[Rfam]
Background: DUF3800-V RNA: a 96-nucleotide RNA sequence.

RNA sequence: UAGAGUUGACAAUAAUACCUCUUAAGGUGCUUGAGUGUUCCCAUCGCGGAUGUGAUGGUUUAAACUUGGGAGUCCAUCUUAAAAGACGUCACUCUA
Number, nucleotide and partner (000 for none) at each position: 001u096002a095003g094004a093005g092006u091007u000008g000009a089010c088011a000012a000013u000014a000015a000016u000017a000018c000019c000020u000021c000022u000023u081024a080025a079026g078027g077028u076029g075030c070031u069032u068033g067034a066035g065036u064037g000038u000039u000040c000041c000042c057043a056044u055045c054046g053047c052048g000049g000050a000051u000052g047053u046054g045055a044056u043057g042058g000059u000060u000061u000062a000063a000064a036065c035066u034067u033068g032069g031070g030071a000072g000073u000074c000075c029076a028077u027078c026079u025080u024081a023082a000083a000084a000085g000086a000087c000088g010089u009090c000091a006092c005093u004094c003095u002096a001

Rfam classes the family as a small RNA.
It is one of the family's seed sequences.